Source information:
The family of this 115-nucleotide RNA from Phycicoccus elongatus is "SAM (S-adenosyl methionine) riboswitch aptamer". Rfam's curators write: SAM-IV is a mRNA element that regulates gene expression via direct sensing of S-adenosylmethionine (SAM or AdoMet). SAM-IV riboswitches share conserved nucleotide positions with the previously described SAM-I riboswitches sequence analysis and molecular recognition experiments suggest that SAM-I and SAM-IV riboswitches share similar ligand binding sites, but have different scaffolds. Its Rfam clan is "SAM clan".
[Rfam]
RNA sequence: GGUCAUGAGUGCCAGCGACAAGCCCCGGCUCGCUGGUCAGCAACCCUCCUCCGCGGUGGGGUGCUCCGGGUGACGACCUGGUCGUCGGCGAAACCGCCGUCGGCAAGCGCGGACU
Number, nucleotide and partner (000 for none) at each position: 001g078002g077003u076004c075005a000006u000007g000008a000009g038010u000011g037012c036013c035014a034015g033016c032017g000018a000019c000020a000021a030022g029023c000024c000025c000026c000027g000028g000029c022030u021031c000032g016033c015034u014035g013036g012037u011038c009039a065040g064041c063042a000043a000044c061045c060046c059047u000048c056049c055050u000051c000052c000053g000054c000055g049056g048057u000058g000059g046060g045061g044062u000063g041064c040065u039066c000067c000068g000069g000070g000071u000072g000073a000074c000075g004076a003077c002078c001079u000080g000081g104082u103083c102084g101085u000086c099087g098088g097089c096090g095091a000092a000093a000094c000095c090096g089097c088098c087099g086100u000101c084102g083103g082104c081105a000106a000107g000108c000109g000110c000111g000112g000113a000114c000115u000
The organism belongs to Phycicoccus elongatus, within Bacteria.